[Rfam]
RNA sequence: CCAGGGGUUUCACCCCUGGCUAUUAACGGUCGCCCCUUCGGGGCU
Numbered sequence: 001c002c003a004g005g006g007g008u009u010u011c012a013c014c015c016c017u018g019g020c021u022a023u024u025a026a027c028g029g030u031c032g033c034c035c036c037u038u039c040g041g042g043g044c045u
Stems, first nucleotide, its partner, number of pairs: 001019008032044005
This 45-nucleotide RNA sequence from Singulisphaera acidiphila belongs to the Rfam family "Acido-Lenti-1 RNA".
It is annotated as a small RNA.
The base pairs follow the family's consensus structure, which is taken from published work.